[Rfam]
RNA sequence: UUUUUUAGGGAGAAUUUGGCCUUCCAACAGAGGGAGGCCCGGAAAUUUUCCU
Number, nucleotide and partner (000 for none) at each position: 001u000002u000003u000004u000005u000006u000007a000008g052009g051010g050011a049012g048013a047014a046015u042016u041017u000018g039019g038020c037021c036022u035023u034024c033025c032026a000027a000028c000029a000030g000031a000032g025033g024034g023035a022036g021037g020038c019039c018040c000041g016042g015043a000044a000045a000046u014047u013048u012049u011050c010051c009052u008
This 52-nucleotide RNA sequence from Lentivirus humimdef1 belongs to the Rfam family "HIV Ribosomal frameshift signal". The family's RNA type in Rfam is frameshift element. Taxonomically the source falls in Lentivirus humimdef1 (Viruses, Pararnavirae, Artverviricota, Lentivirus). The base pairs follow the family's consensus structure, which is taken from published work. About the family: This family represents the HIV Ribosomal frameshift signal. HIV uses a system called -1 ribosomal frameshifting to produce the required ratio of Gag and Gag-Pol polyproteins. The stem-loop structure of the frameshift signal is thought to impede the ribosome and cause slippage in the 5' direction, this causes the -1 frameshift and translation then continues in the new frame. For this family Rfam cites "The human immunodeficiency virus type 1 ribosomal frameshifting site is an invariant sequence determinant and an important target for antiviral therapy" (Biswas et al., J Virol, 2004).